[Rfam]
RNA sequence: UUAAUUCCCUUUUUGGUGUCUUAUGAUGAAGCUGCAUAGGGCAGAUUCUGAGCUGAGAGAUAAAAUUUCUCUCCACUGAUCCUCUCUAUAUGCCAUCUGAAGACACUAUAUAUUGC
Dot-bracket structure: .............((((((((.........(..((((.(((..(..((.(.(..((((((.....))))))..).).)))..)))....))))..)....))))))))........
The family of this 116-nucleotide RNA from Acanthisitta chloris is "Small nucleolar RNA SNORD90". The match comes from Rfam's covariance-model search (56 bits). Rfam's curators write: snoRNA HBII-295 belongs to the family of C/D snoRNAs. It is the human orthologue of the mouse MBII-295 and has no identified RNA target. Gene Ontology terms of the family: RNA processing and nucleolus. Lineage of the source: Eukaryota > Euteleostomi > Amniota > Telluraves > Acanthisitta.